[Rfam]
Nucleotides: 063
Stems, first nucleotide, its partner, number of pairs: 012060001013024004026045002028042003047059003
Number, partner (000 for none) and nucleotide at each position: 001000a002000c003000a004000a005000u006000g007000a008000u009000a010000c011000u012060u013024c014023u015022g016021a017000a018000c019000g020000u021016u022015c023014a024013g025000g026045c027044u028042g029041c030040c031000a032000g033000c034000g035000u036000a037000a038000a039000a040030g041029g042028c043000c044027a045026g046000u047059g048058g049057g050000u051000g052000a053000g054000a055000u056000u057049c058048c059047c060012a061000u062000g063000a